[Rfam]
RNA sequence: GGUUGUAAAUUCAAGGCCAUAGCAGCACUCACAGCAUGGCCUGCCAGAUUCCAAUGAAUCUGCAAAUUCUGCU
Numbered sequence: 001g002g003u004u005g006u007a008a009a010u011u012c013a014a015g016g017c018c019a020u021a022g023c024a025g026c027a028c029u030c031a032c033a034g035c036a037u038g039g040c041c042u043g044c045c046a047g048a049u050u051c052c053a054a055u056g057a058a059u060c061u062g063c064a065a066a067u068u069c070u071g072c073u
Stems, first nucleotide, its partner, number of pairs: 015041004021073005027067001045062007

The family of this 73-nucleotide RNA from Crocodylus porosus is "Mammalian CPEB3 ribozyme". Rfam's curators write: The mammalian CPEB3 ribozyme is a self cleaving RNA located in the second intron of the CPEB3 gene which belongs to a family of genes regulating messenger RNA polyadenylation. This ribozyme is highly conserved and found only in mammals. Pairs were carried over by alignment from the consensus structure, which is taken from published work.